[Rfam]
RNA sequence: AAAUGAUGACAUAAACCAUUUCGUAUAACUCCAAUAAUAUGGUUUGGAGGUCUCUACCAGGAACCAAUAAUUCCUGAUUACGAAGAAGAUGCAAAGAUUU
Numbered sequence: 001a002a003a004u005g006a007u008g009a010c011a012u013a014a015a016c017c018a019u020u021u022c023g024u025a026u027a028a029c030u031c032c033a034a035u036a037a038u039a040u041g042g043u044u045u046g047g048a049g050g051u052c053u054c055u056a057c058c059a060g061g062a063a064c065c066a067a068u069a070a071u072u073c074c075u076g077a078u079u080a081c082g083a084a085g086a087a088g089a090u091g092c093a094a095a096g097a098u099u100u
Base pairs, nucleotide, nucleotide: 019085020084021083022082023081024080025079029049030048031047032046033045034044058076059075060074061073062072063071
RNA: Purine riboswitch aptamer
Organism: Neobacillus massiliamazoniensis